[Rfam]
RNA sequence: GGCCAGCCUAGCCCGACGGGGCGAACAGCGGUCUUCCCUCCCGCCAGGCUGGCCGAUCUAUUCAGGA
Numbered sequence: 001g002g003c004c005a006g007c008c009u010a011g012c013c014c015g016a017c018g019g020g021g022c023g024a025a026c027a028g029c030g031g032u033c034u035u036c037c038c039u040c041c042c043g044c045c046a047g048g049c050u051g052g053c054c055g056a057u058c059u060a061u062u063c064a065g066g067a
Base pairs, nucleotide, nucleotide: 001054002053003052004051005050006049007048008047011022012021013020014019028044029043030042031041035067036066037065
Record summary
The record is a 67-nucleotide RNA sequence from Geopseudomonas guangdongensis, which matches "int-alpA RNA" in Rfam. Rfam classes the family as a small RNA. The family has 167 seed sequences and 577 matches in Rfam 15.1. From the family's description: Acidobacteria (1 example), Planctomycetes (1 example), Proteobacteria. Pairs were carried over by alignment from the consensus structure, which is taken from published work. Lineage of the source: Bacteria > Pseudomonadati > Pseudomonadota > Pseudomonadales > Geopseudomonas.